The family of this 129-nucleotide RNA sequence from Lachancea waltii is "U5 spliceosomal RNA". Taxonomically the source falls in Lachancea (Eukaryota, Opisthokonta, Saccharomycotina, Saccharomycetes).

RNA sequence: AUUUUGGGCUGCUAACUCAUAACGAACAUGGUUCUUGCCUUUUACCAGAACCAUCCGGGUGUUGUCUUUUCCGGGGGCAAGUUUUACAGUGCUGCUUACUUUUUGGAACUUUUCCCAUUUUUGUUAGAU
Numbered sequence: 001a002u003u004u005u006g007g008g009c010u011g012c013u014a015a016c017u018c019a020u021a022a023c024g025a026a027c028a029u030g031g032u033u034c035u036u037g038c039c040u041u042u043u044a045c046c047a048g049a050a051c052c053a054u055c056c057g058g059g060u061g062u063u064g065u066c067u068u069u070u071c072c073g074g075g076g077g078c079a080a081g082u083u084u085u086a087c088a089g090u091g092c093u094g095c096u097u098a099c100u101u102u103u104u105g106g107a108a109c110u111u112u113u114c115c116c117a118u119u120u121u122u123g124u125u126a127g128a129u
Stems, first nucleotide, its partner, number of pairs: 003081004011066001013064004018059001028054008107129001110127002114123001

Annotation:
The sequence is in the family's curated seed alignment.